[Rfam]
RNA sequence: UUGGCGGUGGCGUCCCAGGAGCCCUCCUGCUGGACCAGGGCGGCCGAGCCGAAGUGGUCGCCGUCGAUCAUGGUGCCGAGCACGGUCUCGUCUCCGUACUCGCCGGAGCCCAGCCGGUUCACCUUCCCGUGGGCGAUGAGGUAGACGCGGUCGGCGGGGGCGCCGCGUUCGACGAUGACGUCGCCGGGCGCGUACUCCUCCUGGGUGAAGCGCUCGGCGAGCGCCUCCAGCGCGGCCUCGUCGCCGAAGUCGCGCAGGAGCGAGAGUUCGCAGAGCUCCCGCGGGAUCACCCGGACGUCGGUGCCGGCGGUGAUGAAGCUGACGCGGCCGUCGCCGACGGUGUAGGUCAGCCGCCGGUUCACCCGGUAGGAGCCGCCCGUGGCCUCGAUCCAGGGGAGCAGCCGCAGCAGCCACCGUGAGGUGAUCCCCUGCAUCUGCGGCGGAGUCUUGGUCGUCGUCGCCAGAUUUCGCGCGGCCGCGGUUCCCAGGCUCAGCGGUUGCUGCCCGU
Dot-bracket structure: .....(((.(.(.((..(..((..((((.......((..((....(.(((((.((..(.(..((.(.(......(.((((.((((........)))).)))))....).)......((((.((...(..(.(.(.(..(((.((.....(...((...(((.(..(((...)))..).....)))..)).)...)))))..).).)..)..)...)).))))))..).)..))(.((..((.(.(.....((.(.((..(((......)))....))).))...).).))..)).).))))).)..))..))...).)..)).))..)((((......))))........(.(.(((..(.((.....)).)))).).).)).).).)))(((((((.((..(((.(.......))))...)).))))))).....((.(.(((...(((((.......)))))..))..).).))((.(((...(.(......).)..)))...)).
RNA: Saccharopolyspora sRNA 350